[Rfam]
RNA sequence: GCCGAGCUUGGUAGCGUGAGCUUGUAACUCGAGCGAGGGCUUUAAGGUGGUGUGGACGAAUUGACUCGAUCUGAGGGGUUGGGUUCGGGACUGCUUGGCUGGCUCGCCCAUUCCAAGUCAGGUAGUGGGCCAUGUAGCUUGGGCGAAGGCCCAGGUUUCCUGGCCCUUUAAAGUGGAGGGCACAGCGCCAGGCUGGCCUCACAGAGCAGCGACUACCUCCCUCUCUUGACAGUGGAAGGAUAACGAGCCGGUGCAGCUUCUGGCCCAGUACGCCCCAAGGGCUGCUUCAUUCGAACCACCAUUUUU
Numbered sequence: 001g002c003c004g005a006g007c008u009u010g011g012u013a014g015c016g017u018g019a020g021c022u023u024g025u026a027a028c029u030c031g032a033g034c035g036a037g038g039g040c041u042u043u044a045a046g047g048u049g050g051u052g053u054g055g056a057c058g059a060a061u062u063g064a065c066u067c068g069a070u071c072u073g074a075g076g077g078g079u080u081g082g083g084u085u086c087g088g089g090a091c092u093g094c095u096u097g098g099c100u101g102g103c104u105c106g107c108c109c110a111u112u113c114c115a116a117g118u119c120a121g122g123u124a125g126u127g128g129g130c131c132a133u134g135u136a137g138c139u140u141g142g143g144c145g146a147a148g149g150c151c152c153a154g155g156u157u158u159c160c161u162g163g164c165c166c167u168u169u170a171a172a173g174u175g176g177a178g179g180g181c182a183c184a185g186c187g188c189c190a191g192g193c194u195g196g197c198c199u200c201a202c203a204g205a206g207c208a209g210c211g212a213c214u215a216c217c218u219c220c221c222u223c224u225c226u227u228g229a230c231a232g233u234g235g236a237a238g239g240a241u242a243a244c245g246a247g248c249c250g251g252u253g254c255a256g257c258u259u260c261u262g263g264c265c266c267a268g269u270a271c272g273c274c275c276c277a278a279g280g281g282c283u284g285c286u287u288c289a290u291u292c293g294a295a296c297c298a299c300c301a302u303u304u305u306u
Base pairs, nucleotide, nucleotide: 001040002039003038004023005022006021007020008019009018010017028037029036030035044305045304046303047302048301049300050299051298052297054296057293058292060291062289063287064286066284068282070281071280072279075276076275077274078273079272081266082265083264084263085262087260088259089258091256092255093254095253099251100250101249102248103247104246105245106244108239109238111237112236113235114234115233117230118229119228120227121226122225125222127166128165129164130163131162132161134159136157137156138155139154140153141152142151143150144149167173168172175220176219177218178217179216186211187210188209193204194203195202
Rfam assigns this 306-nucleotide RNA sequence from Camphora micrantha to the family "Plant signal recognition particle RNA". The organism belongs to Camphora, within Eukaryota. Rfam 15.1 lists 4,988 matches to the family in 266 species.